RNA: tRNA
RNA sequence: GGUCCCAUAGCUCAGUUGGUUAGAGCGUCGUACUAAUAUCAUCGUAUCUGCGAUCAUAUCUAGUUCAUGCGAAGGCCGGCGGUUCGAGCCCGCCUGGGACCA
Number, nucleotide and partner (000 for none) at each position: 001g101002g100003u099004c098005c097006c096007a095008u000009a000010g026011c025012u024013c023014a000015g000016u000017u000018g000019g000020u000021u000022a000023g013024a012025g011026c010027g000028u072029c071030g070031u069032a068033c000034u000035a000036a000037u000038a000039u000040c000041a000042u000043c000044g000045u000046a000047u000048c000049u000050g000051c000052g000053a000054u000055c000056a000057u000058a000059u000060c000061u000062a000063g000064u000065u000066c000067a000068u032069g031070c030071g029072a028073a000074g000075g000076c000077c000078g094079g093080c092081g091082g090083u000084u000085c000086g000087a000088g000089c000090c082091c081092g080093c079094c078095u007096g006097g005098g004099a003100c002101c001102a000